Rfam assigns this 69-nucleotide RNA sequence from Etheostoma spectabile to the family "mir-29 microRNA precursor family". On this family, see Ambros, Cell 2001: "microRNAs: tiny regulators with great potential". NCBI's taxonomy places the organism under Eukaryota, Vertebrata, Teleostomi, Percoidei, Oligocephalus. Rfam links the family to the GO terms RISC complex and gene silencing by miRNA. From the family's description: This family represents the microRNA (miRNA) precursors mir-29. Pairs were carried over by alignment from the consensus structure, which was predicted with PFOLD.

RNA sequence: AGAGCUGGUUUCACAUGGUGGUUUAGAUGUGUCUUCCCGUUGUCUAGCACCAUUUGAAAUCAGUGUUCU
Number, nucleotide and partner (000 for none) at each position: 001a067002g066003a064004g000005c063006u062007g061008g060009u059010u058011u057012c056013a055014c000015a053016u052017g051018g050019u049020g048021g000022u000023u000024u046025a045026g044027a043028u000029g000030u000031g000032u000033c000034u000035u000036c000037c000038c000039g000040u000041u000042g000043u027044c026045u025046a024047g000048c020049a019050c018051c017052a016053u015054u000055u013056g012057a011058a010059a009060u008061c007062a006063g005064u003065g000066u002067u001068c000069u000